[Rfam]
RNA sequence: AACAAUUUGUCCCGCGUCCCGCGGCGUUUUAAAAAGUCUCGAUUUUUUAAAAAUCGGGCCUUUUUUAAAAACGCUGCGGGACGCGGGACAAAUUGUUAA
Numbered sequence: 001a002a003c004a005a006u007u008u009g010u011c012c013c014g015c016g017u018c019c020c021g022c023g024g025c026g027u028u029u030u031a032a033a034a035a036g037u038c039u040c041g042a043u044u045u046u047u048u049a050a051a052a053a054u055c056g057g058g059c060c061u062u063u064u065u066u067a068a069a070a071a072c073g074c075u076g077c078g079g080g081a082c083g084c085g086g087g088a089c090a091a092a093u094u095g096u097u098a099a
Base pairs, nucleotide, nucleotide: 001097002096003095004094005093006092007091008090009089010088011087012086013085014084015083016082017081018080019079020078021077022076023075024074025073026072027071028070029069030068032066033065034064035063

Shown here is a 99-nucleotide RNA sequence from Pipistrellus kuhlii, a member of the family "mir-9261 microRNA precursor family". The organism belongs to Pipistrellus, within Eukaryota. It scores 87 bits against the family's covariance model. Rfam links the family to the GO terms miRNA-mediated post-transcriptional gene silencing and RISC complex. The family's consensus secondary structure was predicted with RNAalifold.